[Rfam]
RNA sequence: UUAAUUCCUUUUUUUGUGUCUUAUGAUGAAGCUUCAUAGGGCAGAUUCUGAGCUGAGAAAUAAAAUUUCUCUCCACUGAUACUCUCUAUAUGCCAUCUGAAGACACAACAUACACG
Numbered sequence: 001u002u003a004a005u006u007c008c009u010u011u012u013u014u015u016g017u018g019u020c021u022u023a024u025g026a027u028g029a030a031g032c033u034u035c036a037u038a039g040g041g042c043a044g045a046u047u048c049u050g051a052g053c054u055g056a057g058a059a060a061u062a063a064a065a066u067u068u069c070u071c072u073c074c075a076c077u078g079a080u081a082c083u084c085u086c087u088a089u090a091u092g093c094c095a096u097c098u099g100a101a102g103a104c105a106c107a108a109c110a111u112a113c114a115c116g
Base pairs, nucleotide, nucleotide: 014108015107016106017105018104019103020102021101031096035092036091037090039085040084041083044080047079048078050076052074055071056070057069058068059067
Dot-bracket structure: .............((((((((.........(...(((.(((..(..((.(.(..(((((.......)))))..).).)))..)))....)))...)....))))))))........
Small nucleolar RNA SNORD90: a 116-nucleotide sequence from Limosa lapponica. Rfam's curators write: snoRNA HBII-295 belongs to the family of C/D snoRNAs. NCBI's taxonomy places the organism under Eukaryota, Bilateria, Deuterostomia, Sarcopterygii, Limosa lapponica. A search with the family's covariance model found it, with a score of 60 bits.